[Rfam]
RNA sequence: UUUCUUGGUAGAGGUGCGGAGGCCAUGAGUAGCCGGGCGCGCGGUUCCGAUCUGCUUCGGACGCCUGAGCGAAAGGGGCUUCUCGACCGAUGAGGCCGAGGCAACUUUUUCACUUGGUUGUCCGCCGAAACUGCCGCGAUAGCCGGAACGCGGUGGUUGGGGGGCAGGUCUAAGGCCUGUCCACUGUCGUCUGUUUCUGCGAGGCCCUUCCGGCCGCGCCGAAGCGGAUGGAGCGCUAUCGAGAGG
Numbered sequence: 001u002u003u004c005u006u007g008g009u010a011g012a013g014g015u016g017c018g019g020a021g022g023c024c025a026u027g028a029g030u031a032g033c034c035g036g037g038c039g040c041g042c043g044g045u046u047c048c049g050a051u052c053u054g055c056u057u058c059g060g061a062c063g064c065c066u067g068a069g070c071g072a073a074a075g076g077g078g079c080u081u082c083u084c085g086a087c088c089g090a091u092g093a094g095g096c097c098g099a100g101g102c103a104a105c106u107u108u109u110u111c112a113c114u115u116g117g118u119u120g121u122c123c124g125c126c127g128a129a130a131c132u133g134c135c136g137c138g139a140u141a142g143c144c145g146g147a148a149c150g151c152g153g154u155g156g157u158u159g160g161g162g163g164g165c166a167g168g169u170c171u172a173a174g175g176c177c178u179g180u181c182c183a184c185u186g187u188c189g190u191c192u193g194u195u196u197c198u199g200c201g202a203g204g205c206c207c208u209u210c211c212g213g214c215c216g217c218g219c220c221g222a223a224g225c226g227g228a229u230g231g232a233g234c235g236c237u238a239u240c241g242a243g244a245g246g
Base pairs, nucleotide, nucleotide: 006241007240008239009238010237011236016125017124018123019122020121022119024117129158130157131156132155133154134153135152136151137150138149140147159185160184162182163181164180165179166178167177168176169175187231188230189229190228191227192226193225194224195223196222197221
The family of this 246-nucleotide RNA from Candidatus Acidiferrum panamense is "Lysine riboswitch aptamer". NCBI's taxonomy places the organism under Bacteria, Pseudomonadati, Acidobacteriota, Candidatus Acidiferrales, Candidatus Acidiferrum. The match comes from Rfam's covariance-model search (62 bits).